Overview:
Shown here is a 76-nucleotide RNA sequence from Nocardioides szechwanensis, a member of the family "ZMP/ZTP riboswitch aptamer (pfl RNA motif)". Taxonomically the source falls in Nocardioides (Bacteria, Bacillati, Propionibacteriales, Nocardioidaceae). A search with the family's covariance model found it, with a score of 45 bits.

RNA sequence: GGCCACACGACUGGCGCGGGUGGGCAACCACCGGGGAGUGAUCGUGGUACGGCCAUCGUCCGCCUGGGUGGCCCUC
Dot-bracket structure: ((...(((..(([[[[...((((....))))..))..))).)).........(((((...]]]]..))))).....
Numbered sequence: 001g002g003c004c005a006c007a008c009g010a011c012u013g014g015c016g017c018g019g020g021u022g023g024g025c026a027a028c029c030a031c032c033g034g035g036g037a038g039u040g041a042u043c044g045u046g047g048u049a050c051g052g053c054c055a056u057c058g059u060c061c062g063c064c065u066g067g068g069u070g071g072c073c074c075u076c
Stems, first nucleotide, its partner, number of pairs: 001043002006040003011035002013064004020031004053071005